This 165-nucleotide RNA from Photobacterium marinum belongs to the Rfam family "DABA-DC-AT RNA".
The family's consensus secondary structure is taken from published work.
RNA sequence: GCAAUCUCAGACGUGUUGUUCUGAGACUCAUGUGUUGCGAUUAAUUCAAGCUGAUGUUAUCGCAAUACGCCGUAGGUACUAACGGUGCAUCGUUAGUAGAAGGGCAUUAAUAGCGCUGCUUUGCUGGAAAGAAAAAAGGCGGCAGCAUAUUGAGGGAACCCAACA
Numbered sequence: 001g002c003a004a005u006c007u008c009a010g011a012c013g014u015g016u017u018g019u020u021c022u023g024a025g026a027c028u029c030a031u032g033u034g035u036u037g038c039g040a041u042u043a044a045u046u047c048a049a050g051c052u053g054a055u056g057u058u059a060u061c062g063c064a065a066u067a068c069g070c071c072g073u074a075g076g077u078a079c080u081a082a083c084g085g086u087g088c089a090u091c092g093u094u095a096g097u098a099g100a101a102g103g104g105c106a107u108u109a110a111u112a113g114c115g116c117u118g119c120u121u122u123g124c125u126g127g128a129a130a131g132a133a134a135a136a137a138g139g140c141g142g143c144a145g146c147a148u149a150u151u152g153a154g155g156g157a158a159c160c161c162a163a164c165a
Stems, first nucleotide, its partner, number of pairs: 006025006032068008043057001077098009121145006
The organism belongs to Photobacterium, within Bacteria.